[Rfam]
RNA sequence: GGGCUGCGACGGGGGCGUCCGCGCAAGCGGGCUGAGAAGCACCCUUUGAACCUGACCCGGAUCAUUCCGGCGGAGGAAGUCGCGGGACCGCCGCG
Numbered sequence: 001g002g003g004c005u006g007c008g009a010c011g012g013g014g015g016c017g018u019c020c021g022c023g024c025a026a027g028c029g030g031g032c033u034g035a036g037a038a039g040c041a042c043c044c045u046u047u048g049a050a051c052c053u054g055a056c057c058c059g060g061a062u063c064a065u066u067c068c069g070g071c072g073g074a075g076g077a078a079g080u081c082g083c084g085g086g087a088c089c090g091c092c093g094c095g
Base pairs, nucleotide, nucleotide: 006083007082008081009080010079011045012044013043014042016039017032018031019030020029021028051076052075053074057070058069059068060067
This 95-nucleotide sequence from Roseovarius spongiae belongs to the Rfam family "TPP riboswitch aptamer (THI element)". Taxonomically the source falls in Roseovarius (Bacteria, Pseudomonadati, Rhodobacterales, Roseobacteraceae). The base pairs follow the family's consensus structure, which is taken from published work.